RNA sequence: UGACAGUUGCGUGAGGGAUGGCAGCGGAAAUCCUUUUGCGGAGUUUACGAAGCGAAAGAUUGCAGCGUACAGCCCGACGGCGG
Numbered sequence: 001u002g003a004c005a006g007u008u009g010c011g012u013g014a015g016g017g018a019u020g021g022c023a024g025c026g027g028a029a030a031u032c033c034u035u036u037u038g039c040g041g042a043g044u045u046u047a048c049g050a051a052g053c054g055a056a057a058g059a060u061u062g063c064a065g066c067g068u069a070c071a072g073c074c075c076g077a078c079g080g081c082g083g
Stems, first nucleotide, its partner, number of pairs: 015075003019071002024066002029061004035056005
Rfam assigns this 83-nucleotide sequence from Flavobacterium caeni to the family "Flavo-1 RNA".
The match comes from Rfam's covariance-model search (49 bits).